This 145-nucleotide RNA sequence from Paenibacillus swuensis belongs to the Rfam family "c-di-AMP riboswitch aptamer (ydaO/yuaA leader)". The pairing is the family consensus, mapped onto this sequence. It scores 83 bits against the family's covariance model. Rfam links the family to the GO terms cyclic-di-AMP binding and regulation of gene expression.

[Rfam]
RNA sequence: UAUAAACAUACGCUUAAUCUCUGGUCCGAUGGAUCAUGAAGAGCGGGGGAACCAUUACGUGGGGCGAAUCAUUCAUGACCUGAAUGUAGGGUACCAUCUUACCCGAGUCCGUCAGCUAACCUCGUCAGCAGUAGAUGGGUCUGAU
Numbered sequence: 001u002a003u004a005a006a007c008a009u010a011c012g013c014u015u016a017a018u019c020u021c022u023g024g025u026c027c028g029a030u031g032g033a034u035c036a037u038g039a040a041g042a043g044c045g046g047g048g049g050a051a052c053c054a055u056u057a058c059g060u061g062g063g064g065c066g067a068a069u070c071a072u073u074c075a076u077g078a079c080c081u082g083a084a085u086g087u088a089g090g091g092u093a094c095c096a097u098c099u100u101a102c103c104c105g106a107g108u109c110c111g112u113c114a115g116c117u118a119a120c121c122u123c124g125u126c127a128g129c130a131g132u133a134g135a136u137g138g139g140u141c142u143g144a145u
Base pairs, nucleotide, nucleotide: 012129013128014127018042019041020040043125044124045123046122047121048120053061054060062110063109064108070086071085072084073083089104090103091102092101